[Rfam]
RNA sequence: GGAUCGAUGAUGACCCCUAAAUAUACAUUCCUUGGAAAUCUGAACAAAAUGAGUGAAAAAUCUCAACCGUCAUCUUCAUCGAACUGAGGUCC
Numbered sequence: 001g002g003a004u005c006g007a008u009g010a011u012g013a014c015c016c017c018u019a020a021a022u023a024u025a026c027a028u029u030c031c032u033u034g035g036a037a038a039u040c041u042g043a044a045c046a047a048a049a050u051g052a053g054u055g056a057a058a059a060a061u062c063u064c065a066a067c068c069g070u071c072a073u074c075u076u077c078a079u080c081g082a083a084c085u086g087a088g089g090u091c092c
Base pairs, nucleotide, nucleotide: 001092002091003090004089005088026055027054028053029052030051032047033046034045
Rfam assigns this 92-nucleotide RNA from Tupaia belangeri to the family "Small nucleolar RNA SNORD116". Pairs were carried over by alignment from the consensus structure, which was predicted with PFOLD.